[Rfam]
The family of this 328-nucleotide RNA sequence from Dethiosulfatibacter aminovorans is "Bacterial RNase P class A".
Nucleotides: 328
Base pairs, nucleotide, nucleotide: 002323003322004321005320006319007318008317009316010315011313012293013292014291015290016289017288018287020031021030022029023028036311037310038309040308041307042306043305044304045198046197047196048195052230053229054228055227058193059192060191061190062076063075064074065073066072077091078089079088080087081086092189093188097187098186099183100182101181113130114129115126116125117124118123138156139155140154141153142152143151158178159176160175161174162173163172164171165170202250203249204248205247212239213238214237221235222234223233224232225231257276258275259274260273262271263270264269
Number, partner (000 for none) and nucleotide at each position: 001000a002323g003322a004321g005320u006319a007318a008317g009316u010315u011313g012293g013292a014291u015290a016289a017288u018287c019000g020031c021030a022029u023028g024000g025000a026000a027000a028023c029022a030021u031020g032000a033000g034000g035000a036311a037310a038309g039000u040308c041307c042306g043305a044304g045198c046197u047196u048195c049000a050000u051000a052230g053229a054228g055227c056000a057000u058193g059192a060191u061190g062076c063075u064074g065073g066072u067000u068000a069000a070000c071000g072066g073065c074064c075063a076062g077091u078089g079088a080087g081086g082000g083000u084000g085000a086081c087080c088079u089078u090000a091077a092189g093188g094000c095000a096000a097187g098186u099183g100182c101181a102000a103000c104000a105000g106000a107000a108000a109000a110000u111000u112000a113130c114129c115126g116125c117124c118123c119000g120000c121000a122000a123118g124117g125116g126115u127000a128000a129114g130113g131000a132000u133000g134000a135000a136000a137000a138156g139155g140154u141153g142152a143151g144000g145000u146000a147000a148000g149000a150000g151143c152142u153141c154140a155139c156138c157000a158178g159176c160175g161174g162173c163172u164171a165170g166000g167000c168000g169000a170165c171164u172163a173162g174161u175160c176159g177000g178158c179000u180000g181101u182100g183099u184000a185000a186098a187097c188093c189092c190061c191060a192059u193058u194000u195048g196047a197046a198045g199000c200000a201000a202250g203249a204248c205247c206000a207000a208000g209000c210000a211000g212239g213238g214237a215000c216000c217000u218000g219000g220000a221235a222234u223233g224232g225231c226000u227055g228054c229053u230052c231225g232224u233223c234222a235221u236000a237214u238213c239212c240000c241000g242000u243000g244000g245000u246000a247205g248204g249203u250202c251000g252000c253000u254000u255000g256000a257276g258275c259274a260273c261000u262271u263270c264269g265000g266000c267000a268000a269264c270263g271262a272000u273260g274259u275258g276257c277000c278000u279000a280000g281000a282000u283000a284000g285000a286000u287018g288017a289016u290015u291014a292013u293012c294000g295000a296000a297000u298000a299000c300000a301000g302000a303000a304044c305043u306042c307041g308040g309038c310037u311036u312000a313011u314000a315010g316009a317008u318007u319006u320005a321004c322003u323002c324000a325000a326000c327000c328000u
NCBI's taxonomy places the organism under Bacteria, Bacillati, Bacillota, Tissierellia, Dethiosulfatibacter aminovorans.
A search with the family's covariance model found it, with a score of 279 bits.